[Rfam]
RNA: Small nucleolar RNA SNORD90
Organism: Naja naja
RNA sequence: AAGUGAGCCUUGACGCAUCCAGUGAUGAGGUUGCAUAGGGCAGAUUCUGAGCUGGGAGCUGCGGCUCCUAAGCGCUGAUCUUCUGAUUAUGCGGUCUGAGGAUGUGGCUCCGUUU
Numbered sequence: 001a002a003g004u005g006a007g008c009c010u011u012g013a014c015g016c017a018u019c020c021a022g023u024g025a026u027g028a029g030g031u032u033g034c035a036u037a038g039g040g041c042a043g044a045u046u047c048u049g050a051g052c053u054g055g056g057a058g059c060u061g062c063g064g065c066u067c068c069u070a071a072g073c074g075c076u077g078a079u080c081u082u083c084u085g086a087u088u089a090u091g092c093g094g095u096c097u098g099a100g101g102a103u104g105u106g107g108c109u110c111c112g113u114u115u
Stems, first nucleotide, its partner, number of pairs: 012108001014106007030095007038084003043079001046078002049075001051073003055069002